[Rfam]
Nucleotides: 052
Stems, first nucleotide, its partner, number of pairs: 005048006015037001018039002021035005
Number, partner (000 for none) and nucleotide at each position: 001000u002000g003000a004000u005048g006047g007046a008045g009044u010043a011000g012000a013000a014000g015037c016000g017000g018039u019038u020000a021035g022034c023033a024032g025031c026000c027000u028000u029000g030000u031025g032024c033023u034022g035021c036000g037015g038019g039018a040000c041000a042000u043010u044009g045008c046007u047006c048005c049000g050000c051000a052000u
Source information: This 52-nucleotide RNA belongs to the Rfam family "Xanthine riboswitch aptamer (NMT1 RNA)". For this family Rfam cites "A bacterial riboswitch class senses xanthine and uric acid to regulate genes associated with purine oxidation" (Yu and Breaker, RNA, 2020). Pairs were carried over by alignment from the consensus structure, which is taken from published work.